[Rfam]
RNA sequence: GUUUGGGUGAUGACUUCACAGUUAGUCGGAUACCCCUUCACUCGUCCUGAGUGACAGCUGCUGUCUGACAAAC
Numbered sequence: 001g002u003u004u005g006g007g008u009g010a011u012g013a014c015u016u017c018a019c020a021g022u023u024a025g026u027c028g029g030a031u032a033c034c035c036c037u038u039c040a041c042u043c044g045u046c047c048u049g050a051g052u053g054a055c056a057g058c059u060g061c062u063g064u065c066u067g068a069c070a071a072a073c
Stems, first nucleotide, its partner, number of pairs: 001073005
Notes
Rfam assigns this 73-nucleotide RNA sequence from Phainopepla nitens to the family "Small nucleolar RNA SNORD101". It scores 62 bits against the family's covariance model. NCBI's taxonomy places the organism under Eukaryota, Chordata, Archosauria, Aves, Phainopepla. The family has 26 seed sequences and 658 matches in Rfam 15.1. Rfam classes the family as a C/D-box small nucleolar RNA.